[Rfam]
The family of this 290-nucleotide sequence from Bombus vosnesenskii is "Nuclear RNase P". The match comes from Rfam's covariance-model search (131 bits). Its Rfam clan is "RNaseP clan". The family has 116 seed sequences and 3,848 matches in Rfam 15.1. The source organism's lineage runs through Eukaryota, Bilateria, Hexapoda, Endopterygota and Pyrobombus. Rfam's curators write: Ribonuclease P (RNase P) is a ubiquitous endoribonuclease, found in archaea, bacteria and eukarya as well as chloroplasts and mitochondria. Its best characterised activity is the generation of mature 5'-ends of tRNAs by cleaving the 5'-leader elements of precursor-tRNAs. Cellular RNase Ps are ribonucleoproteins. The family's RNA type in Rfam is ribozyme.

RNA sequence: GCAGCUUCAAUCUAGCGGAAGGGGUGUACAGGCAAGGUACAUAGUUACCACGUUUUCACCUCGGGAAGGUCUGAGAUUCAGUCAAUAAACGUUCUAGCCGGACGGUAUCAUAAGGGUACGUACGGGAACCAGAAAUAGCUUUUUGUUGCCAAUUAGCCCAGGAAACUUCGCUCGAAGUAGAGGUACUUGGAAACGAAAAGAUGGAAACCCGUAUGAUUCGCUAUUUGAGUACAAUCCGCAAGCCAAAAAACUUAUACUUUGGAACUCAAUUCAGACUAAUCUGAAGCUGC
Numbered sequence: 001g002c003a004g005c006u007u008c009a010a011u012c013u014a015g016c017g018g019a020a021g022g023g024g025u026g027u028a029c030a031g032g033c034a035a036g037g038u039a040c041a042u043a044g045u046u047a048c049c050a051c052g053u054u055u056u057c058a059c060c061u062c063g064g065g066a067a068g069g070u071c072u073g074a075g076a077u078u079c080a081g082u083c084a085a086u087a088a089a090c091g092u093u094c095u096a097g098c099c100g101g102a103c104g105g106u107a108u109c110a111u112a113a114g115g116g117u118a119c120g121u122a123c124g125g126g127a128a129c130c131a132g133a134a135a136u137a138g139c140u141u142u143u144u145g146u147u148g149c150c151a152a153u154u155a156g157c158c159c160a161g162g163a164a165a166c167u168u169c170g171c172u173c174g175a176a177g178u179a180g181a182g183g184u185a186c187u188u189g190g191a192a193a194c195g196a197a198a199a200g201a202u203g204g205a206a207a208c209c210c211g212u213a214u215g216a217u218u219c220g221c222u223a224u225u226u227g228a229g230u231a232c233a234a235u236c237c238g239c240a241a242g243c244c245a246a247a248a249a250a251c252u253u254a255u256a257c258u259u260u261g262g263a264a265c266u267c268a269a270u271u272c273a274g275a276c277u278a279a280u281c282u283g284a285a286g287c288u289g290c
Stems, first nucleotide, its partner, number of pairs: 001290004007284003012242002015239004021062005036049004071274005080218004090104005105119005120214007139200007243262005
Dot-bracket structure: ((((..(((..[[.[[[[..(((((..........((((......))))........)))))........(((((....((((......(((((.....)))))(((((.....)))))(((((((............(((((((................................................))))))).......))))))))))).................]]]].]](((((..........))))).......))))).......)))..))))